[Rfam]
RNA sequence: AGAUAACAUUGUUUUGCUAUUUCCGACCAAUAACACAAUGACACGUGGAAAAGUUAUCAUACAUGUCAUUGCGUUAUUGGUCAGGGAUAGCAAAAGGCGAUAUCC
Numbered sequence: 001a002g003a004u005a006a007c008a009u010u011g012u013u014u015u016g017c018u019a020u021u022u023c024c025g026a027c028c029a030a031u032a033a034c035a036c037a038a039u040g041a042c043a044c045g046u047g048g049a050a051a052a053g054u055u056a057u058c059a060u061a062c063a064u065g066u067c068a069u070u071g072c073g074u075u076a077u078u079g080g081u082c083a084g085g086g087a088u089a090g091c092a093a094a095a096g097g098c099g100a101u102a103u104c105c
Stems, first nucleotide, its partner, number of pairs: 002104004012095009022085002025082010036071008045062003050057001
A member of the RNA family "MIR6274 microRNA precursor family" from Prunus armeniaca, 105 nucleotides long. Its family is annotated with miRNA-mediated post-transcriptional gene silencing and RISC complex in the Gene Ontology. Lineage of the source: Eukaryota > Streptophyta > rosids > Rosales > Prunus. The match comes from Rfam's covariance-model search (85 bits).